The family of this 80-nucleotide sequence from Xenopus laevis is "mir-203 microRNA precursor family". The family's consensus secondary structure was predicted with RNAalifold.
RNA sequence: AUCCCCCGGAUCAAGUGGUCCUAAACAUUUCACAAUUUCGAUAGAGAACUGUUGAACUGUUAAGAACCACUUGGCCAGGG
Numbered sequence: 001a002u003c004c005c006c007c008g009g010a011u012c013a014a015g016u017g018g019u020c021c022u023a024a025a026c027a028u029u030u031c032a033c034a035a036u037u038u039c040g041a042u043a044g045a046g047a048a049c050u051g052u053u054g055a056a057c058u059g060u061u062a063a064g065a066a067c068c069a070c071u072u073g074g075c076c077a078g079g080g
Stems, first nucleotide, its partner, number of pairs: 014071006021064002024061004029056004

Taxonomically the source falls in Xenopus (Eukaryota, Metazoa, Dipnotetrapodomorpha, Tetrapoda). Rfam links the family to the GO terms RISC complex and miRNA-mediated post-transcriptional gene silencing. The literature on the family includes a 2003 paper in Science by Lim et al., "Vertebrate microRNA genes".